Shown here is a 189-nucleotide sequence from Anopheles stephensi, a member of the family "drz-agam-2-2 ribozyme". The literature on the family includes a 2009 paper in Science by Webb et al., "Widespread occurrence of self-cleaving ribozymes". The family's consensus secondary structure is taken from published work. Rfam 15.1 lists 486 matches to the family in 10 species. A search with the family's covariance model found it, with a score of 116 bits.
RNA sequence: AGUAGUCAGCGCUUUGUUAAUGGAGUAGGUUCUGAGACUCUUUUCGGGGUUACACAGGCUCUCCUACCCAACUCCUAUUCGUUCUUCCCUCGUCGUACAGAGUGGUAACUUUCCUCACCACGUAUCCAAGCUUGGGUACACGGGCCUGUCCCAACCCCUUGGGCGGAUGGUGGAGCUAAACAGGAGGGG
Numbered sequence: 001a002g003u004a005g006u007c008a009g010c011g012c013u014u015u016g017u018u019a020a021u022g023g024a025g026u027a028g029g030u031u032c033u034g035a036g037a038c039u040c041u042u043u044u045c046g047g048g049g050u051u052a053c054a055c056a057g058g059c060u061c062u063c064c065u066a067c068c069c070a071a072c073u074c075c076u077a078u079u080c081g082u083u084c085u086u087c088c089c090u091c092g093u094c095g096u097a098c099a100g101a102g103u104g105g106u107a108a109c110u111u112u113c114c115u116c117a118c119c120a121c122g123u124a125u126c127c128a129a130g131c132u133u134g135g136g137u138a139c140a141c142g143g144g145c146c147u148g149u150c151c152c153a154a155c156c157c158c159u160u161g162g163g164c165g166g167a168u169g170g171u172g173g174a175g176c177u178a179a180a181c182a183g184g185a186g187g188g189g
Stems, first nucleotide, its partner, number of pairs: 011103007023069001025067005032058002073189004078185003083180001085095001088105002114173001116172004124168004132154005156163002
Dot-bracket structure: ..........(((((((.....(.(((((..((.......................))....))))).)...[[[[.[[[..[.(..[[.....).)))))))]]........(.((((....((((....(((((.............))))).((....)).)))))))))......]..]]]]]]]